[Rfam]
RNA sequence: UGACCGAUUUUGCUUUUAUCAGCAAAGAAAAAUAGGCCAGACGGACAGCCGGGUCAAAUGCCGA
Number, nucleotide and partner (000 for none) at each position: 001u056002g055003a054004c053005c052006g000007a000008u027009u026010u025011u024012g023013c022014u021015u000016u000017u000018a000019u000020c000021a014022g013023c012024a011025a010026a009027g008028a000029a000030a000031a000032a000033u000034a000035g000036g000037c000038c000039a000040g000041a000042c000043g000044g000045a000046c000047a000048g000049c000050c000051g000052g005053g004054u003055c002056a001057a000058a000059u000060g000061c000062c000063g000064a000

A member of the RNA family "Streptococcus sRNA SpF59 (ldcC RNA)", 64 nucleotides long. The family's RNA type in Rfam is small RNA.